Shown here is a 46-nucleotide RNA sequence from Orycteropus afer, a member of the family "Histone 3' UTR stem-loop". NCBI's taxonomy places the organism under Eukaryota, Teleostomi, Sarcopterygii, Eutheria, Orycteropus afer. The family's consensus secondary structure is taken from published work. Rfam describes the family as follows. The mRNAs of metazoan histone genes lack a poly-A tail. 3' end processing occurs at a site between a highly conserved stem-loop (modelled by this family) and a purine rich region around 20 nts downstream (the histone downstream element, or HDE).
RNA sequence: CCAACGGCUCUUUUCAGAGCCACCCAUGCUUUCCAAAGAGAACUGU
Dot-bracket structure: .....((((((....)))))).........................